A member of the RNA family "Small nucleolar RNA R32/R81/Z41" from Cannabis sativa, 88 nucleotides long. The match comes from Rfam's covariance-model search (47 bits). Gene Ontology terms of the family: nucleolus and RNA processing. On this family, see Barneche et al., J Mol Biol 2001: "Identification of 66 box C/D snoRNAs in Arabidopsis thaliana: extensive gene duplications generated multiple isoforms predicting new ribosomal RNA 2'-O-methylation sites". The family's consensus secondary structure was predicted with PFOLD.

RNA sequence: ACAAGAACAUGAUGAGAGUAAUAUGCGGAUGAUGGCUACUGUUAGUAGUUCAUGGGAUCAAAAUCGCUACGUUCUUUCUGAUUCUUCU
Number, nucleotide and partner (000 for none) at each position: 001a000002c000003a000004a085005g084006a083007a082008c000009a000010u000011g000012a000013u000014g000015a000016g000017a000018g000019u000020a000021a000022u000023a000024u000025g000026c000027g000028g000029a000030u000031g000032a000033u000034g000035g000036c000037u000038a000039c000040u000041g000042u000043u000044a000045g000046u000047a000048g000049u000050u000051c000052a000053u000054g000055g000056g000057a000058u000059c000060a000061a000062a000063a000064u000065c000066g000067c000068u000069a000070c000071g000072u000073u000074c000075u000076u000077u000078c000079u000080g000081a000082u007083u006084c005085u004086u000087c000088u000